[Rfam]
RNA: ssNA-helicase RNA
RNA sequence: UGCGAUAGGGGGAGUAUUACCCCCUAUCGUAGCAAUGUAGCAGUAGCA
Numbered sequence: 001u002g003c004g005a006u007a008g009g010g011g012g013a014g015u016a017u018u019a020c021c022c023c024c025u026a027u028c029g030u031a032g033c034a035a036u037g038u039a040g041c042a043g044u045a046g047c048a
Stems, first nucleotide, its partner, number of pairs: 001031011